Manganese Mn2+ riboswitch aptamer (yybP-ykoY): a 122-nucleotide RNA sequence from Pseudomonas sp. TAD18. A search with the family's covariance model found it, with a score of 58 bits. Taxonomically the source falls in Pseudomonas (Bacteria, Pseudomonadati, Pseudomonadota, Gammaproteobacteria).
[Rfam]
RNA sequence: CCGCUCCGUCCUAGGGGAGUAGUCUCCUCUGAGCUUCACGCUCAUCCGGCAUACGUCAACAUACUUGGUCAACAGACCAUGGCGUAUGCGACCCAGGUGUCCGCACAGACGGACCAGGGUUU
Numbered sequence: 001c002c003g004c005u006c007c008g009u010c011c012u013a014g015g016g017g018a019g020u021a022g023u024c025u026c027c028u029c030u031g032a033g034c035u036u037c038a039c040g041c042u043c044a045u046c047c048g049g050c051a052u053a054c055g056u057c058a059a060c061a062u063a064c065u066u067g068g069u070c071a072a073c074a075g076a077c078c079a080u081g082g083c084g085u086a087u088g089c090g091a092c093c094c095a096g097g098u099g100u101c102c103g104c105a106c107a108g109a110c111g112g113a114c115c116a117g118g119g120u121u122u
Stems, first nucleotide, its partner, number of pairs: 049089010066079005090121005096115003